[Rfam]
RNA sequence: AAUCUGAACAAGCUGUGCAUUAUGCAUGAAGCCGGGUUAUCCAAGCAGGAUAACAGCGGAGAUAUCCGUGAGACAG
Numbered sequence: 001a002a003u004c005u006g007a008a009c010a011a012g013c014u015g016u017g018c019a020u021u022a023u024g025c026a027u028g029a030a031g032c033c034g035g036g037u038u039a040u041c042c043a044a045g046c047a048g049g050a051u052a053a054c055a056g057c058g059g060a061g062a063u064a065u066c067c068g069u070g071a072g073a074c075a076g
Stems, first nucleotide, its partner, number of pairs: 004076003012032002014029001015027005036054007056069005
Shown here is a 76-nucleotide sequence, a member of the family "NiCo-AnGGAG riboswitch aptamer". Its Rfam clan is "NiCo_riboswitches". A reference for the family is Weinberg et al. (2017), "Bioinformatic analysis of riboswitch structures uncovers variant classes with altered ligand specificity", Proc Natl Acad Sci U S A. Nico riboswitches are selective metalloregulatory riboswitches that recognice Ni2+ and Co2+ metals. NiCo-AnGGAG is a variant of Nico riboswitch, with a change in position 87, from G to A. The sequence is in the family's curated seed alignment.